[Rfam]
RNA sequence: ACCAUUCUGAAGGGGGUCACAGCAGGAGUGUUAAAUGUCGCGGUCCCGGUCGAACCCAUGUACUGAUGGGUCGUGAAUCCUGCU
Dot-bracket structure: ............[[[[[[..((((((((((........)))]]]]]]...(((.((...........)).)))....)))))))